[Rfam]
Nucleotides: 077
Stems, first nucleotide, its partner, number of pairs: 002076005008070001010068010023057008032048001
Number, partner (000 for none) and nucleotide at each position: 001000c002076u003075g004074c005073c006072a007000g008070c009000u010068g011067u012066a013065a014064a015063c016062a017061c018060c019059c020000u021000u022000g023057a024056c025055u026054g027053a028052a029051a030050g031000a032048c033000g034000g035000a036000g037000a038000g039000c040000c041000u042000u043000a044000u045000g046000c047000g048032g049000a050030c051029u052028u053027u054026c055025a056024g057023u058000u059019g060018g061017g062016u063015g064014u065013u066012u067011a068010u069000u070008g071000c072006u073005g074004g075003c076002g077000g
mir-30 microRNA precursor family: a 77-nucleotide sequence from Eptatretus burgeri. From the family's description: This family consists of the mammalian microRNA (miRNA) precursor mir-30a. Animal miRNAs are transcribed as ~70nt precursors and subsequently processed by the Dicer enzyme to give a ~22nt product. Pairs were carried over by alignment from the consensus structure, which was predicted with PFOLD. The organism belongs to Eptatretus, within Eukaryota. Rfam links the family to the GO terms gene silencing by miRNA and RISC complex.